[Rfam]
RNA sequence: GAAAAAAAGCAGAAGCACCCGCUUCUCGCCUUGGUGACCAGAGUCAUCGGGCAGAUGAACGAUGAAUUGAUUCCCAUUAACGGGGUUGAGCGGGCGUACUAUGCGCCCGCUCUUUUUGUGAAUU
Numbered sequence: 001g002a003a004a005a006a007a008a009g010c011a012g013a014a015g016c017a018c019c020c021g022c023u024u025c026u027c028g029c030c031u032u033g034g035u036g037a038c039c040a041g042a043g044u045c046a047u048c049g050g051g052c053a054g055a056u057g058a059a060c061g062a063u064g065a066a067u068u069g070a071u072u073c074c075c076a077u078u079a080a081c082g083g084g085g086u087u088g089a090g091c092g093g094g095c096g097u098a099c100u101a102u103g104c105g106c107c108c109g110c111u112c113u114u115u116u117u118g119u120g121a122a123u124u
Stems, first nucleotide, its partner, number of pairs: 011026006028052003034047005089111010